About this RNA:
The family of this 90-nucleotide sequence from Laticauda laticaudata is "rpsL sRNA". A search with the family's covariance model found it, with a score of 38 bits. Rfam classes the family as a small RNA. Lineage of the source: Eukaryota > Bilateria > Gnathostomata > Euteleostomi > Laticauda.
RNA sequence: CUGGCUAAAACAUAUAUAUGGAGUAUAGUUUUUGAUUUAUAAAUUAAAAGCCAGUAUAAUUUAAAUGUUGGUCAUUUCUAUGCAUGCUUA
Numbered sequence: 001c002u003g004g005c006u007a008a009a010a011c012a013u014a015u016a017u018a019u020g021g022a023g024u025a026u027a028g029u030u031u032u033u034g035a036u037u038u039a040u041a042a043a044u045u046a047a048a049a050g051c052c053a054g055u056a057u058a059a060u061u062u063a064a065a066u067g068u069u070g071g072u073c074a075u076u077u078c079u080a081u082g083c084a085u086g087c088u089u090a
Base pairs, nucleotide, nucleotide: 012085013084015082016081017080020078021077022076023075024074026046027045028044029043030042031041050072051071052070053069